[Rfam]
RNA sequence: CUGUGUGUAGAAAUGUUUGCUCCUCUAUCCUUUGGGAACAGGAAUACAUUCAUAACAUGCUACAUGUAAAAAGGACUCCCCAGGGUGGCCAAUCUUAUGGUAGAGGUUGUAUGGUAAUAUAUUUCUCCUUCAUAA
Numbered sequence: 001c002u003g004u005g006u007g008u009a010g011a012a013a014u015g016u017u018u019g020c021u022c023c024u025c026u027a028u029c030c031u032u033u034g035g036g037a038a039c040a041g042g043a044a045u046a047c048a049u050u051c052a053u054a055a056c057a058u059g060c061u062a063c064a065u066g067u068a069a070a071a072a073g074g075a076c077u078c079c080c081c082a083g084g085g086u087g088g089c090c091a092a093u094c095u096u097a098u099g100g101u102a103g104a105g106g107u108u109g110u111a112u113g114g115u116a117a118u119a120u121a122u123u124u125c126u127c128c129u130u131c132a133u134a135a
Stems, first nucleotide, its partner, number of pairs: 003060006016042004021037003073128003085115002090109007
Dot-bracket structure: ..((((((.......((((.(((...........))).))))............))))))............(((.........((...(((((((......)))))))....))..........))).......
RNA: Small nucleolar RNA U109
Organism: Pan troglodytes